[Rfam]
Nucleotides: 143
Base pairs, nucleotide, nucleotide: 003061004060005059006058007057008056016048017047018046020044021042022041023040024039025038080137081136082135083134084133086131093123094122095121097118098117099116100115101114
Number, partner (000 for none) and nucleotide at each position: 001000g002000u003061u004060g005059c006058u007057u008056c009000a010000u011000a012000a013000u014000g015000g016048u017047g018046a019000a020044a021042u022041c023040u024039c025038u026000c027000a028000a029000a030000a031000u032000c033000g034000a035000a036000u037000g038025a039024g040023a041022g042021a043000a044020u045000c046018u047017c048016a049000a050000g051000u052000u053000u054000c055000c056008g057007g058006a059005g060004c061003a062000u063000a064000g065000a066000u067000u068000a069000a070000g071000c072000a073000u074000u075000c076000u077000a078000u079000c080137a081136c082135c083134a084133g085000u086131a087000u088000u089000a090000a091000a092000c093123a094122g095121c096000u097118c098117g099116g100115u101114g102000c103000g104000u105000a106000u107000a108000c109000a110000a111000u112000c113000g114101c115100a116099u117098c118097g119000a120000u121095g122094u123093u124000a125000c126000c127000u128000g129000u130000c131086u132000c133084c134083u135082g136081g137080u138000a139000u140000a141000c142000c143000u
Shown here is a 143-nucleotide RNA from Helianthus annuus, a member of the family "small nucleolar RNA snoR137". It scores 106 bits against the family's covariance model. Rfam links the family to the GO terms RNA processing and nucleolus. Rfam classes the family as an H/ACA-box small nucleolar RNA. A reference for the family is Chen and Wu (2009), "Mining small RNA sequencing data: a new approach to identify small nucleolar RNAs in Arabidopsis", Nucleic Acids Res. The base pairs follow the family's consensus structure, which was predicted with RNAalifold.